[Rfam]
RNA sequence: CAUGUAAAUAAACGAUAACCUCAUAUAAAAUUGGGAAUACGGCCCAGAAGUUUCUACCCGAUGACCGUAAAUCAUCGGACUAUGAGGGAAAGUGUACGUAUA
Numbered sequence: 001c002a003u004g005u006a007a008a009u010a011a012a013c014g015a016u017a018a019c020c021u022c023a024u025a026u027a028a029a030a031u032u033g034g035g036a037a038u039a040c041g042g043c044c045c046a047g048a049a050g051u052u053u054c055u056a057c058c059c060g061a062u063g064a065c066c067g068u069a070a071a072u073c074a075u076c077g078g079a080c081u082a083u084g085a086g087g088g089a090a091a092g093u094g095u096a097c098g099u100a101u102a
Stems, first nucleotide, its partner, number of pairs: 019087007031047005058078007